[Rfam]
RNA sequence: GACACAACUAAACACUCAAGCCUUUGCCGCCUAAGUCAGACUACGAUACGGCGCUCAGGCCGUGGCUCCGGGCCACCAGGGUGCAGGAAGAAAUGACUGCAUCUCCCGAUAUCUGGAAAGGUGUACAUGGUCACUCAAC
Numbered sequence: 001g002a003c004a005c006a007a008c009u010a011a012a013c014a015c016u017c018a019a020g021c022c023u024u025u026g027c028c029g030c031c032u033a034a035g036u037c038a039g040a041c042u043a044c045g046a047u048a049c050g051g052c053g054c055u056c057a058g059g060c061c062g063u064g065g066c067u068c069c070g071g072g073c074c075a076c077c078a079g080g081g082u083g084c085a086g087g088a089a090g091a092a093a094u095g096a097c098u099g100c101a102u103c104u105c106c107c108g109a110u111a112u113c114u115g116g117a118a119a120g121g122u123g124u125a126c127a128u129g130g131u132c133a134c135u136c137a138a139c
Stems, first nucleotide, its partner, number of pairs: 012124004017120001020060004026054002029052003035047003062076005079104008089094001105116002
A member of the RNA family "Molybdenum/Tungsten riboswitch aptamer (Moco RNA motif)" from Jejuibacter calystegiae, 139 nucleotides long.